[Rfam]
RNA sequence: GGCUAUUUGGGUUCCUGGCACGAUGAUUUGAGAUUAAAAUCACAUUGCCGGGGAUUACCACAUAGCC
Numbered sequence: 001g002g003c004u005a006u007u008u009g010g011g012u013u014c015c016u017g018g019c020a021c022g023a024u025g026a027u028u029u030g031a032g033a034u035u036a037a038a039a040u041c042a043c044a045u046u047g048c049c050g051g052g053g054a055u056u057a058c059c060a061c062a063u064a065g066c067c
Stems, first nucleotide, its partner, number of pairs: 001067002004064003008060003011055010022043001024042006
RNA: mir-23 microRNA precursor family
Organism: Charadrius vociferus